[Rfam]
RNA sequence: GUGGAGAACUAAGAGCUCCUUCCAGUCCAAUAUCGAGGGCUUAGGAGCGGUUAGAGCUGCCAUCUCAUGCAUUUGGUUACGCUUAGUAUUUUCCAAGUUUGUAAAGUUUCUACGACUACAAGGAAGACAAGUAAAUAUUAAGUUUAGUCAGUUGCAUGAUACGGGAGCAACUCAUUCCGUGUACUUUGCCCACCUAUUGGACUGAAGGGAGCUCCCGGCAAUAUCUGU
Number, nucleotide and partner (000 for none) at each position: 001g000002u000003g000004g000005a000006g000007a000008a000009c000010u000011a000012a000013g214014a213015g212016c211017u210018c209019c208020u207021u000022c000023c204024a203025g202026u201027c200028c199029a198030a000031u000032a000033u000034c000035g000036a000037g000038g000039g000040c000041u000042u000043a000044g000045g000046a000047g000048c000049g000050g000051u000052u000053a000054g000055a000056g000057c167058u166059g000060c164061c163062a000063u000064c000065u000066c158067a157068u156069g155070c000071a000072u000073u000074u150075g149076g148077u147078u146079a145080c000081g000082c000083u000084u000085a000086g000087u000088a000089u000090u000091u000092u000093c000094c000095a000096a000097g000098u000099u000100u000101g000102u000103a000104a000105a000106g000107u000108u000109u000110c000111u000112a000113c000114g000115a000116c000117u000118a000119c000120a000121a000122g000123g000124a000125a000126g000127a000128c000129a000130a000131g000132u000133a000134a000135a000136u000137a000138u000139u000140a000141a000142g000143u000144u000145u079146a078147g077148u076149c075150a074151g000152u000153u000154g000155c069156a068157u067158g066159a000160u000161a000162c000163g061164g060165g000166a058167g057168c000169a000170a000171c000172u000173c000174a000175u000176u000177c000178c000179g000180u000181g000182u000183a000184c000185u000186u000187u000188g000189c000190c000191c000192a000193c000194c000195u000196a000197u000198u029199g028200g027201a026202c025203u024204g023205a000206a000207g020208g019209g018210a017211g016212c015213u014214c013215c000216c000217g000218g000219c000220a000221a000222u000223a000224u000225c000226u000227g000228u000
RNA: MIR159 microRNA precursor family